[Rfam]
RNA sequence: AACGUAAGUUCAAAAAUCAAUAGUAUAACCUCAUAGAUAUGGUAUGAGGGUCUCUACCAGGAACCGUAAAAUCCUGAUUACAAAAAGUGUAUUUUUACAU
Numbered sequence: 001a002a003c004g005u006a007a008g009u010u011c012a013a014a015a016a017u018c019a020a021u022a023g024u025a026u027a028a029c030c031u032c033a034u035a036g037a038u039a040u041g042g043u044a045u046g047a048g049g050g051u052c053u054c055u056a057c058c059a060g061g062a063a064c065c066g067u068a069a070a071a072u073c074c075u076g077a078u079u080a081c082a083a084a085a086a087g088u089g090u091a092u093u094u095u096u097a098c099a100u
Stems, first nucleotide, its partner, number of pairs: 021083001023081003029049007058076005
Dot-bracket structure: ....................(.(((...(((((((.......)))))))........(((((.........)))))..))).).................

This 100-nucleotide RNA sequence from Aneurinibacillus soli belongs to the Rfam family "Purine riboswitch aptamer". NCBI's taxonomy places the organism under Bacteria, Bacillota, Caryophanales, Paenibacillaceae, Aneurinibacillus. It scores 67 bits against the family's covariance model. The family's consensus secondary structure is taken from published work. Its family is annotated with purine nucleobase biosynthetic process in the Gene Ontology. The family is grouped with related families in Rfam's "Purine riboswitches".